A member of the RNA family "Ribosomal S15 leader" from Escherichia coli, 115 nucleotides long. Its family is annotated with regulation of translation, ncRNA-mediated in the Gene Ontology. Clan: Ribosomal Protein S15 Leader clan. Pairs were carried over by alignment from the consensus structure, which is taken from published work. From the family's description: The E. coli Ribosomal S15 gene 5' UTR can form two alternative structures. One that is a series of three hairpins, The other includes a pseudoknot. This structure causes translational regulation of the S15 protein. The alignment of this family contains only the final two hairpins which are conserved in other species, and also includes the complete region that forms the alternate structures.

RNA sequence: UGGGAUCGCUGAAUUAGAGAUCGGCGUCCUUUCAUUCUAUAUACUUUGGAGUUUUAAAAUGUCUCUAAGUACUGAAGCAACAGCUAAAAUCGUUUCUGAGUUUGGUCGUGACGCA
Numbered sequence: 001u002g003g004g005a006u007c008g009c010u011g012a013a014u015u016a017g018a019g020a021u022c023g024g025c026g027u028c029c030u031u032u033c034a035u036u037c038u039a040u041a042u043a044c045u046u047u048g049g050a051g052u053u054u055u056a057a058a059a060u061g062u063c064u065c066u067a068a069g070u071a072c073u074g075a076a077g078c079a080a081c082a083g084c085u086a087a088a089a090u091c092g093u094u095u096c097u098g099a100g101u102u103u104g105g106u107c108g109u110g111a112c113g114c115a
Base pairs, nucleotide, nucleotide: 007026008025009024010023011022012021045069046068047067048066049065050064051063